Rfam assigns this 101-nucleotide RNA from Nocardia pseudobrasiliensis to the family "azaaromatic riboswitch aptamer (yjdF RNA)". Pairs were carried over by alignment from the consensus structure, which is taken from published work.

[Rfam]
RNA sequence: GGCGGGACGAGCGAAAACACGGCCCGGUCGGUAGUCCGGGCGGUCGCGACCCGCGGCUCAGUAACCUCCCUCCCAGGGUGUCCGGCCCGUCCUCCCACCCG
Numbered sequence: 001g002g003c004g005g006g007a008c009g010a011g012c013g014a015a016a017a018c019a020c021g022g023c024c025c026g027g028u029c030g031g032u033a034g035u036c037c038g039g040g041c042g043g044u045c046g047c048g049a050c051c052c053g054c055g056g057c058u059c060a061g062u063a064a065c066c067u068c069c070c071u072c073c074c075a076g077g078g079u080g081u082c083c084g085g086c087c088c089g090u091c092c093u094c095c096c097a098c099c100c101g
Base pairs, nucleotide, nucleotide: 004093005092006091007090008089009088011086022041023040024039025038026037027036042058043057044056045055046054047053068078069077070076071075